[Rfam]
RNA sequence: CCCUGACAGUCGUAAUGUGCGGCUGACUUAACCCAGACAGGAGAUUCUCAUG
Numbered sequence: 001c002c003c004u005g006a007c008a009g010u011c012g013u014a015a016u017g018u019g020c021g022g023c024u025g026a027c028u029u030a031a032c033c034c035a036g037a038c039a040g041g042a043g044a045u046u047c048u049c050a051u052g
Stems, first nucleotide, its partner, number of pairs: 002041004007025005
RNA: Mu-gpT-DE RNA